[Rfam]
RNA: Fluoride riboswitch aptamer (crcB RNA motif)
Organism: Pontibacter cellulosilyticus
RNA sequence: UUGUUAUUAGGUGAUGGGGUACCACCUGUAACCGCCUGCCCAGGCAGCGCUGAUGACUCCUACAGAAGG
Numbered sequence: 001u002u003g004u005u006a007u008u009a010g011g012u013g014a015u016g017g018g019g020u021a022c023c024a025c026c027u028g029u030a031a032c033c034g035c036c037u038g039c040c041c042a043g044g045c046a047g048c049g050c051u052g053a054u055g056a057c058u059c060c061u062a063c064a065g066a067a068g069g
Base pairs, nucleotide, nucleotide: 010026011025012024013023016060017059018058019057020056034050035049036047037046038045039044